The family of this 70-nucleotide RNA sequence from Cervus elaphus is "Small nucleolar RNA U2-30". Its family is annotated with nucleolus and RNA processing in the Gene Ontology. Rfam 15.1 lists 664 matches to the family in 136 species. For this family Rfam cites "Guide RNAs with 5' Caps and Novel Box C/D snoRNA-like Domains for Modification of snRNAs in Metazoa" (Tycowski et al., Curr Biol, 2004). Lineage of the source: Eukaryota > Laurasiatheria > Pecora > Cervidae > Cervus elaphus.
RNA sequence: GACCUGAUGAAAAGUUUUUACUGCAGAACUUUAUAUAACUAUGAAGGUUUCUACACUUGAUCUGAGCUCA
Numbered sequence: 001g002a003c004c005u006g007a008u009g010a011a012a013a014g015u016u017u018u019u020a021c022u023g024c025a026g027a028a029c030u031u032u033a034u035a036u037a038a039c040u041a042u043g044a045a046g047g048u049u050u051c052u053a054c055a056c057u058u059g060a061u062c063u064g065a066g067c068u069c070a
Stems, first nucleotide, its partner, number of pairs: 001067001011032007